[Rfam]
RNA sequence: UUAACUCAAAUUUGUAUGGAGUUGGAACGUUUGCCUACGUUUGCCGCUAGGGGCGCUUAUUCAACUGCAUAAUACUACUUUGAGUUG
Numbered sequence: 001u002u003a004a005c006u007c008a009a010a011u012u013u014g015u016a017u018g019g020a021g022u023u024g025g026a027a028c029g030u031u032u033g034c035c036u037a038c039g040u041u042u043g044c045c046g047c048u049a050g051g052g053g054c055g056c057u058u059a060u061u062c063a064a065c066u067g068c069a070u071a072a073u074a075c076u077a078c079u080u081u082g083a084g085u086u087g
Base pairs, nucleotide, nucleotide: 008081009080010079012077014075015074016073018068020066021065022064023063024062025061026060029057034052035051036050039047040046
RNA: mir-2807 microRNA precursor family